[Rfam]
RNA sequence: UUCGCUGGCGUGCGUUCACUCCACAACAUGAACGGCGACCAUCAAAAAAGGAGGGUCUAAUCUCCGCGUUACUCGCGGUGCGGCAGUGUGGAGACCUGCCGUAAUGCGUGUCAUCCUGCGCGGAUGCGCGCGAGGUGUUCCGGCGUGGGCCGGAGCAUCAGAGUAGAGCACAUGUCU
Dot-bracket structure: ......((....((((((..........))))))....)).......................[[[[.((((((]]]]((((((((.((....))))))))))..((((((.((.........))))))))..(((((((((((....))))))))))).))))))...........